[Rfam]
The record is a 69-nucleotide RNA, which matches "tRNA" in Rfam.
Rfam links the family to the GO term triplet codon-amino acid adaptor activity.
Rfam's curators put it in the seed alignment.
By type it is a transfer RNA.
RNA sequence: AGAGAUUUAAGUUAACAAGACUAAGAGCCUUCAAAGCCCUAAGCAGGAGUUAGAAUCUCCUAAUCUCUG
Numbered sequence: 001a002g003a004g005a006u007u008u009a010a011g012u013u014a015a016c017a018a019g020a021c022u023a024a025g026a027g028c029c030u031u032c033a034a035a036g037c038c039c040u041a042a043g044c045a046g047g048a049g050u051u052a053g054a055a056u057c058u059c060c061u062a063a064u065c066u067c068u069g
Stems, first nucleotide, its partner, number of pairs: 001068007010022004024040002027037002045061005
Dot-bracket structure: (((((((..((((.....)))).((.((.......)).))....(((((.......)))))))))))).